[Rfam]
RNA sequence: GGGCGAGGAGGGUGGAGUGCUUCGGCGUCCCACGUGUGUGACAGCUGAGAGAAAGUCCCCGAGUCAAGGUGCCGCCUGUUGAGGCGAGGCCUCUUAUCACAGAAAUGUGAGCCUGAAAAGGGCAGAUAUCCUGCCAGCGGGCACAUCGGGCUGAGACACAUGUGUGGAACCCCGUGCCCUCUGGAGGAGCAGCUGACUACACCACAGUCAUGCACUCCGCUUGGUCAUCACUCGCCAAGCUACAGAACGGGGCUUACUCUCUCCUCGCC
Number, nucleotide and partner (000 for none) at each position: 001g000002g269003g268004c267005g266006a265007g264008g263009a262010g000011g261012g260013u000014g000015g217016a216017g215018u214019g213020c212021u000022u049023c047024g046025g045026c044027g000028u000029c000030c000031c000032a000033c000034g000035u000036g000037u000038g000039u000040g000041a000042c000043a000044g026045c025046u024047g023048a000049g022050a000051g000052a000053a255054a254055g253056u000057c252058c251059c250060c249061g000062a000063g000064u000065c000066a000067a000068g000069g000070u000071g000072c000073c000074g000075c000076c000077u000078g000079u000080u000081g000082a000083g000084g000085c000086g000087a000088g000089g000090c000091c000092u000093c000094u000095u000096a000097u000098c109099a108100c107101a106102g000103a000104a000105a000106u101107g100108u099109g098110a000111g123112c122113c121114u120115g000116a000117a000118a000119a000120g114121g113122g112123c111124a000125g190126a000127u188128a000129u000130c000131c186132u185133g000134c184135c183136a182137g181138c000139g000140g000141g177142c176143a175144c174145a000146u000147c000148g172149g171150g170151c000152u000153g000154a000155g000156a000157c000158a165159c164160a000161u000162g000163u000164g159165u158166g000167g000168a000169a000170c150171c149172c148173c000174g144175u143176g142177c141178c000179c000180u000181c137182u136183g135184g134185a132186g131187g000188a127189g000190c125191a000192g000193c000194u000195g000196a000197c000198u000199a000200c000201a000202c000203c000204a000205c000206a000207g000208u000209c000210a000211u000212g020213c019214a018215c017216u016217c015218c000219g240220c239221u238222u237223g236224g235225u000226c000227a000228u000229c000230a000231c000232u000233c000234g000235c224236c223237a222238a221239g220240c219241u000242a000243c000244a000245g000246a000247a000248c000249g060250g059251g058252g057253c055254u054255u053256a000257c000258u000259c000260u012261c011262u009263c008264c007265u006266c005267g004268c003269c002

Notes:
This 269-nucleotide RNA sequence from Adiantum capillus-veneris belongs to the Rfam family "RNase MRP". NCBI's taxonomy places the organism under Eukaryota, Viridiplantae, Streptophytina, Polypodiales, Adiantum. RNase MRP is an enzymatically active ribonucleoprotein with two distinct roles in eukaryotes. The match comes from Rfam's covariance-model search (73 bits).